[Rfam]
RNA sequence: ACCGAUUUUAUGAUGAAAUAUUUCGGAUGUAAAUCACAGACCUGUUCUGAAAGCGCAAAACCCCAUGUGGAUUCUUUCCGUUGCCUUCCUUCUGAUCAAGAUCGU
Numbered sequence: 001a002c003c004g005a006u007u008u009u010a011u012g013a014u015g016a017a018a019u020a021u022u023u024c025g026g027a028u029g030u031a032a033a034u035c036a037c038a039g040a041c042c043u044g045u046u047c048u049g050a051a052a053g054c055g056c057a058a059a060a061c062c063c064c065a066u067g068u069g070g071a072u073u074c075u076u077u078c079c080g081u082u083g084c085c086u087u088c089c090u091u092c093u094g095a096u097c098a099a100g101a102u103c104g105u
Base pairs, nucleotide, nucleotide: 003104004103005102024080025079026078027077
RNA: Small nucleolar RNA Z13/snr52